The record is a 125-nucleotide RNA sequence from Anaerosporomusa subterranea, which matches "c-di-AMP riboswitch aptamer (ydaO/yuaA leader)" in Rfam. The base pairs follow the family's consensus structure. The source organism's lineage runs through Bacteria, Bacillati, Bacillota, Acetonemataceae and Anaerosporomusa.
RNA sequence: AUCUUAACAAUGCCGAAUCCGAAAGGUACGGGGGAACCAACAUUGGGGUGAAGCAUGGAACCAUGCGGGGUCAGCCUUUGGCCCUAACCCGACAGCUAACCUCGAAGGCAGAGAAAGGCGGAUUC
Numbered sequence: 001a002u003c004u005u006a007a008c009a010a011u012g013c014c015g016a017a018u019c020c021g022a023a024a025g026g027u028a029c030g031g032g033g034g035a036a037c038c039a040a041c042a043u044u045g046g047g048g049u050g051a052a053g054c055a056u057g058g059a060a061c062c063a064u065g066c067g068g069g070g071u072c073a074g075c076c077u078u079u080g081g082c083c084c085u086a087a088c089c090c091g092a093c094a095g096c097u098a099a100c101c102u103c104g105a106a107g108g109c110a111g112a113g114a115a116a117g118g119c120g121g122a123u124u125c
Base pairs, nucleotide, nucleotide: 011110012109013108014107019026020025029104030103031102032101033100038045039044046090047089048088054065055064056063057062068084069083070082071081